[Rfam]
Nucleotides: 304
Stems, first nucleotide, its partner, number of pairs: 001040003004023007028037003044303010056291002059288002062284002065281001067279001069278004075272004079263005085257001088254003092251001098249008107237002110235005116228004121223003127164002130161002133158002136155008173218005184209003191202003
Number, partner (000 for none) and nucleotide at each position: 001040g002039c003038u004023g005022g006021g007020c008019u009018u010017g011000g012000u013000a014000g015000c016000g017010c018009g019008a020007g021006c022005u023004u024000g025000u026000a027000a028037c029036c030035u031000a032000a033000g034000u035030g036029g037028g038003a039002g040001c041000a042000u043000u044303a045302a046301g047300a048299u049298g050297g051296u052295g053294g054000a055000a056291u057290a058000a059288u060287u061000g062284g063283g064000c065281u066000u067279a068000c069278c070277u071276u072275g073000a074000a075272g076271g077270c078269u079263g080262g081261g082260c083259u084000u085257g086000u087000g088254g089253u090252g091000c092251u093000a094000u095000c096000c097000a098249c099248u100247g101246g102245c103244c104243u105242g106000c107237c108236c109000g110235u111234u112233c113232c114231a115000a116228g117227u118226g119225g120000u121223g122222a123221g124000u125000c126000c127164g128163g129000c130161c131160g132000u133158g134157g135000a136155g137154u138153c139152u140151c141150u142149g143148c144000g145000a146000a147000g148143g149142c150141g151140g152139a153138g154137g155136c156000c157134u158133c159000u160131c161130g162000a163128c164127c165000a166000u167000u168000a169000g170000a171000u172000c173218g174217g175216a176215g177214g178000g179000c180000a181000c182000c183000g184209c185208g186207u187000c188000a189000g190000g191202c192201u193200g194000g195000u196000u197000u198000c199000a200193c201192a202191g203000a204000g205000c206000a207186g208185c209184g210000a211000a212000c213000a214177c215176c216175u217174c218173c219000u220000c221123c222122u223121c224000u225119c226118u227117g228116c229000a230000g231114u232113g233112g234111a235110a236108g237107g238000a239000u240000a241000a242105c243104a244103g245102g246101c247100c248099g249098g250000a251092g252090c253089a254088u255000c256000u257085u258000c259083a260082g261081u262080c263079c264000a265000c266000u267000a268000g269078a270077g271076c272075u273000g274000a275072u276071g277070g278069g279067u280000u281065g282000u283063c284062c285000a286000a287060a288059a289000u290057u291056a292000a293000a294053c295052c296051a297050c298049c299048a300047u301046c302045u303044u304000u